[Rfam]
RNA sequence: UUGCGAUGAUGAGCAUCGAUUAUGUCUGACCUGGUAUUGUGUCUCCUCCGGGAACAGCUCUGACCAGGGCCUGAGGACCUAAUCUUCUCUCUGAGCAA
Numbered sequence: 001u002u003g004c005g006a007u008g009a010u011g012a013g014c015a016u017c018g019a020u021u022a023u024g025u026c027u028g029a030c031c032u033g034g035u036a037u038u039g040u041g042u043c044u045c046c047u048c049c050g051g052g053a054a055c056a057g058c059u060c061u062g063a064c065c066a067g068g069g070c071c072u073g074a075g076g077a078c079c080u081a082a083u084c085u086u087c088u089c090u091c092u093g094a095g096c097a098a
Base pairs, nucleotide, nucleotide: 001097003096004095039058040057
Background
Rfam assigns this 98-nucleotide sequence from Astyanax mexicanus to the family "Z30 small nucleolar RNA". Its family is annotated with nucleolus and RNA processing in the Gene Ontology. The family's consensus secondary structure was predicted with PFOLD. The source organism's lineage runs through Eukaryota, Actinopterygii, Acestrorhamphidae, Acestrorhamphinae and Astyanax. On this family, see Galardi et al., Mol Cell Biol 2002: "Purified box C/D snoRNPs are able to reproduce site-specific 2'-O-methylation of target RNA in vitro".